[Rfam]
RNA: Small nucleolar RNA SNORD113/SNORD114 family
RNA sequence: UGGAUCAGUGAUGAGUAAUUCAGGGGCAUAUAAGUCAUUCAUUUUGAUUAAACCCUAAACUCUGAAGUCCAU
Numbered sequence: 001u002g003g004a005u006c007a008g009u010g011a012u013g014a015g016u017a018a019u020u021c022a023g024g025g026g027c028a029u030a031u032a033a034g035u036c037a038u039u040c041a042u043u044u045u046g047a048u049u050a051a052a053c054c055c056u057a058a059a060c061u062c063u064g065a066a067g068u069c070c071a072u
Stems, first nucleotide, its partner, number of pairs: 002070004